Notes
Rfam assigns this 97-nucleotide sequence to the family "PhotoRC-II RNA".
RNA sequence: UAACGAUAUACUACUCCCUGUAAACCGAGACCUCUAGGGAGUCUAAAUUACGUCUCUAAUACCUUCGCCUGAGGGUGGUGAAGGAAUAUUUACUUCA
Number, nucleotide and partner (000 for none) at each position: 001u000002a000003a000004c000005g000006a000007u000008a000009u000010a000011c000012u000013a000014c041015u040016c039017c038018c037019u036020g035021u000022a000023a000024a000025c000026c000027g056028a055029g054030a053031c052032c000033u000034c000035u020036a019037g018038g017039g016040a015041g014042u000043c000044u000045a000046a000047a000048u000049u000050a000051c000052g031053u030054c029055u028056c027057u000058a000059a000060u000061a000062c084063c083064u082065u081066c080067g079068c078069c000070u000071g000072a000073g000074g000075g000076u000077g000078g068079u067080g066081a065082a064083g063084g062085a000086a000087u000088a000089u000090u000091u000092a000093c000094u000095u000096c000097a000